[Rfam]
RNA: Pseudomonas sRNA P31
Organism: Pseudomonas sp. ABC1
RNA sequence: AAGAGACCUCCCGAAGAUCUGGCUGAAGCGCACGCAGAUUGUAAAAAAGCGGGAUGACGUGUGAAGGUCAUCCCGC
Numbered sequence: 001a002a003g004a005g006a007c008c009u010c011c012c013g014a015a016g017a018u019c020u021g022g023c024u025g026a027a028g029c030g031c032a033c034g035c036a037g038a039u040u041g042u043a044a045a046a047a048a049g050c051g052g053g054a055u056g057a058c059g060u061g062u063g064a065a066g067g068u069c070a071u072c073c074c075g076c
Base pairs, nucleotide, nucleotide: 005040008037009036022029023028049076050075051074052073055070056069057068058067